The record is a 109-nucleotide RNA sequence from Scyliorhinus torazame, which matches "Small nucleolar RNA SNORD67" in Rfam. Gene Ontology terms of the family: nucleolus and RNA processing. From the family's description: snoRNA HBII-166 belongs to the C/D family of snoRNAs. The base pairs follow the family's consensus structure. The literature on the family includes a 2001 paper in EMBO J by Huttenhofer et al., "RNomics: an experimental approach that identifies 201 candidates for novel, small, non-messenger RNAs in mouse".

[Rfam]
RNA sequence: UGUGAGAGUGAUGAGUUGCACUAUUGAAGGAGUAGUUGUGCAGUGUCAUAGCUGCUCCUUUCUGAACCCUGAGGACUAAACAAUGUGCACAGGGGCCAUCUGACUCACA
Numbered sequence: 001u002g003u004g005a006g007a008g009u010g011a012u013g014a015g016u017u018g019c020a021c022u023a024u025u026g027a028a029g030g031a032g033u034a035g036u037u038g039u040g041c042a043g044u045g046u047c048a049u050a051g052c053u054g055c056u057c058c059u060u061u062c063u064g065a066a067c068c069c070u071g072a073g074g075a076c077u078a079a080a081c082a083a084u085g086u087g088c089a090c091a092g093g094g095g096c097c098a099u100c101u102g103a104c105u106c107a108c109a
Base pairs, nucleotide, nucleotide: 004108006106007105008104024064026062027060028059029058030057032055033054034053037050038049039048040047